[Rfam]
RNA: Archaeal small subunit ribosomal RNA, nucleotides 857 to 1456
Organism: Methanocorpusculum labreanum
RNA sequence: UGGCGGGGGAGCACCACAACAGGUGGAGCCUGCGGUUUAAUUGGAUUCAACGCCGGACAUCUCACCGGAUAAGACAGCUGAAUGAUUGUCAAUCUGAAGGUUUUACAUGACUAGCUGAGAGGAGGUGCAUGGCCGUCGUCAGUUCGUACUGUGAAGCAUCCUGUUAAGUCAGGCAACGAGCGAGACCCACGCCGACAAUUGCCAGCAGCAUCUCCGGAUGGCUGGGGACAUUGUCGGGACCGCCUCUGCUAAAGGGGAGGAAGGAAUGGGCAACGGUAGGUCAGCAUGCCCCGAAUUAUCCGGGCUACACGCGGGCUACAAUGGACGGGACAAUGGGUAACAACACCGAAAGGUGCAGUCAAUCUCCGAACCCCGCCCUUAGUUAGGAUUGCGGGUUGCAACUCACCCGCAUGAAUCUGGAAUCUGUAGUAAUCGCGUUUCACUAUAGCGCGGUGAAUACGUCCCUGCUCCUUGCACACACCGCCCGUCAAACCAUCCUAGUGGGGUUUGGAUGAGUCCCUGGUCUUUGCCGGGGUCGAAUCUAGGUUCCGUGAGGAGGGUUAAGUCGUAACAAGGUAGCCGUAGGGGAAUCUGCGGCUG
Number, nucleotide and partner (000 for none) at each position: 001u478002g477003g475004c474005g473006g000007g472008g471009g470010a469011g468012c467013a466014c000015c000016a462017c461018a000019a000020c426021a425022g424023g423024u422025g319026g000027a317028g316029c315030c314031u313032g312033c311034g310035g308036u307037u000038u000039a000040a000041u056042u055043g054044g053045a000046u000047u000048c000049a000050a000051c000052g000053c044054c043055g042056g041057a000058c000059a000060u000061c000062u000063c000064a000065c303066c302067g301068g300069a299070u298071a297072a000073g000074a000075c117076a116077g115078c114079u000080g111081a000082a000083u000084g000085a000086u000087u107088g106089u105090c000091a103092a102093u000094c000095u000096g000097a000098a000099g000100g000101u000102u092103u091104u000105a089106c088107a087108u000109g000110a000111c080112u000113a000114g078115c077116u076117g075118a000119g000120a000121g292122g291123a000124g290125g289126u288127g287128c000129a000130u286131g285132g281133c280134c279135g277136u276137c275138g274139u000140c000141a000142g181143u180144u179145c178146g177147u176148a000149c156150u155151g000152u000153g000154a000155a150156g149157c000158a000159u000160c173161c172162u171163g170164u000165u000166a000167a000168g000169u000170c163171a162172g161173g160174c000175a000176a147177c146178g145179a144180g143181c142182g000183a000184g000185a000186c000187c269188c268189a267190c000191g000192c237193c236194g235195a234196c233197a232198a231199u000200u000201g000202c226203c225204a000205g000206c224207a223208g222209c220210a219211u218212c217213u000214c000215c000216g000217g212218a211219u210220g209221g000222c208223u207224g206225g203226g202227g000228a000229c000230a000231u198232u197233g196234u195235c194236g193237g192238g000239a000240c260241c259242g000243c257244c256245u255246c254247u253248g000249c000250u000251a000252a000253a247254g246255g245256g244257g243258a000259g241260g240261a000262a000263g000264g000265a000266a000267u189268g188269g187270g000271c000272a000273a000274c138275g137276g136277u135278a000279g134280g133281u132282c000283a000284g000285c131286a130287u127288g126289c125290c124291c122292c121293g000294a000295a000296u000297u071298a070299u069300c068301c067302g066303g065304g000305c000306u000307a036308c035309a000310c034311g033312c032313g031314g030315g029316c028317u027318a000319c025320a000321a000322u000323g378324g377325a000326c375327g374328g373329g372330a000331c000332a000333a000334u000335g366336g365337g364338u000339a000340a359341c358342a000343a000344c355345a354346c353347c352348g000349a000350a000351a000352g347353g346354u345355g344356c000357a000358g341359u340360c000361a000362a000363u000364c337365u336366c335367c000368g000369a000370a000371c000372c329373c328374c327375g326376c000377c324378c323379u000380u000381a000382g000383u000384u000385a416386g000387g000388a000389u000390u411391g410392c409393g408394g407395g406396u405397u000398g000399c000400a000401a000402c000403u000404c000405a396406c395407c394408c393409g392410c391411a390412u000413g000414a000415a000416u385417c000418u000419g000420g000421a000422a024423u023424c022425u021426g020427u000428a000429g000430u000431a000432a454433u453434c452435g451436c450437g449438u448439u447440u000441c000442a000443c000444u000445a000446u000447a439448g438449c437450g436451c435452g434453g433454u432455g000456a000457a000458u000459a000460c000461g017462u016463c000464c000465c000466u013467g012468c011469u010470c009471c008472u007473u005474g004475c003476a000477c002478a001479c000480a000481c575482c000483g572484c000485c000486c568487g567488u000489c565490a000491a562492a561493c560494c559495a000496u557497c556498c555499u000500a000501g552502u551503g550504g549505g548506g547507u546508u545509u544510g543511g542512a541513u540514g000515a000516g537517u000518c535519c534520c533521u532522g531523g530524u529525c000526u000527u000528u000529g524530c523531c522532g521533g520534g519535g518536u000537c516538g000539a000540a513541u512542c511543u510544a509545g508546g507547u506548u505549c504550c503551g502552u501553g000554a000555g498556g497557a496558g000559g494560g493561u492562u491563a000564a000565g489566u000567c487568g486569u000570a000571a000572c483573a000574a000575g481576g000577u600578a599579g598580c597581c596582g595583u594584a593585g592586g591587g000588g000589a000590a000591u586592c585593u584594g583595c582596g581597g580598c579599u578600g577